RNA sequence: GACUGGUCCAAGUGCAGUGGUGUUUACAACUACCUGAUUGCAACCGGUUACAGAUUACUUUGUUCCUUCUCCACUCCCACUGCUUCCUUUGACUAGCCUAAA
Numbered sequence: 001g002a003c004u005g006g007u008c009c010a011a012g013u014g015c016a017g018u019g020g021u022g023u024u025u026a027c028a029a030c031u032a033c034c035u036g037a038u039u040g041c042a043a044c045c046g047g048u049u050a051c052a053g054a055u056u057a058c059u060u061u062g063u064u065c066c067u068u069c070u071c072c073a074c075u076c077c078c079a080c081u082g083c084u085u086c087c088u089u090u091g092a093c094u095a096g097c098c099u100a101a102a
Stems, first nucleotide, its partner, number of pairs: 001098001003096006010090002014086001016081005022076001028064003032060001

Y RNA: a 102-nucleotide sequence from Callithrix jacchus. NCBI's taxonomy places the organism under Eukaryota, Chordata, Vertebrata, Tetrapoda, Callithrix. The base pairs follow the family's consensus structure, which is taken from published work. Rfam's curators write: Y RNAs are components of the Ro ribonucleoprotein particle (Ro RNP), in association with Ro60 and La proteins. A reference for the family is Dhahbi et al. (2013), "5'-YRNA fragments derived by processing of transcripts from specific YRNA genes and pseudogenes are abundant in human serum and plasma", Physiol Genomics.